Record summary
Guanidine-II riboswitch aptamer (mini-ykkC): a 49-nucleotide sequence from Halopseudomonas phragmitis. The literature on the family includes a 2017 paper in Biochemistry by Sherlock et al., "Biochemical Validation of a Second Guanidine Riboswitch Class in Bacteria". Rfam's curators write: Simpler in structure and has fewer highly conserved nucleotide positions than the ykkC-yxkD leader. Rfam 15.1 lists 1,589 matches to the family in 1,229 species. It scores 36 bits against the family's covariance model.
[Rfam]
RNA sequence: CAGCCGGGACGACCCGUCUGGACCAGACGUGCUUUCCGGGACGACCCGA
Numbered sequence: 001c002a003g004c005c006g007g008g009a010c011g012a013c014c015c016g017u018c019u020g021g022a023c024c025a026g027a028c029g030u031g032c033u034u035u036c037c038g039g040g041a042c043g044a045c046c047c048g049a
Stems, first nucleotide, its partner, number of pairs: 001020003005016004037048004